[Rfam]
RNA sequence: UUGUCAGGUGGGAUAAUCCUUACCUGUUCCUCCUAUUGGAGGGCAGAUAAAAAAUGAUGAUUGGAGUUCACAUGAUGUGUGAUUAGCAUCUCUGUGUAUUCAGGACUUGCUACAACCUGAUUAUUCCUAUCUGAU
Numbered sequence: 001u002u003g004u005c006a007g008g009u010g011g012g013a014u015a016a017u018c019c020u021u022a023c024c025u026g027u028u029c030c031u032c033c034u035a036u037u038g039g040a041g042g043g044c045a046g047a048u049a050a051a052a053a054a055u056g057a058u059g060a061u062u063g064g065a066g067u068u069c070a071c072a073u074g075a076u077g078u079g080u081g082a083u084u085a086g087c088a089u090c091u092c093u094g095u096g097u098a099u100u101c102a103g104g105a106c107u108u109g110c111u112a113c114a115a116c117c118u119g120a121u122u123a124u125u126c127c128u129a130u131c132u133g134a135u
Stems, first nucleotide, its partner, number of pairs: 024046003028043006074092002077089003080085001096124003100120005
Dot-bracket structure: .......................(((.((((((....)))))))))...........................((.((((....).))).))...(((.(((((...........))))).)))...........